A member of the RNA family "Pseudomonas sRNA P26", 46 nucleotides long. Rfam classes the family as a non-coding RNA gene. It scores 37 bits against the family's covariance model. For this family Rfam cites "Identification of 17 Pseudomonas aeruginosa sRNAs and prediction of sRNA-encoding genes in 10 diverse pathogens using the bioinformatic tool sRNAPredict2" (Livny et al., Nucleic Acids Res, 2006). This small RNA (sRNA) was computationally identified in the genome of the opportunistic pathogen Pseudomonas aeruginosa and its expression verified by northern blot analysis.

RNA sequence: AACCUUCCUUCUGAAGAGUGGCUGGUGGUUUUUGAACCACCAGCCU
Numbered sequence: 001a002a003c004c005u006u007c008c009u010u011c012u013g014a015a016g017a018g019u020g021g022c023u024g025g026u027g028g029u030u031u032u033u034g035a036a037c038c039a040c041c042a043g044c045c046u
Base pairs, nucleotide, nucleotide: 006014007013020045021044022043023042024041025040026039027038028037029036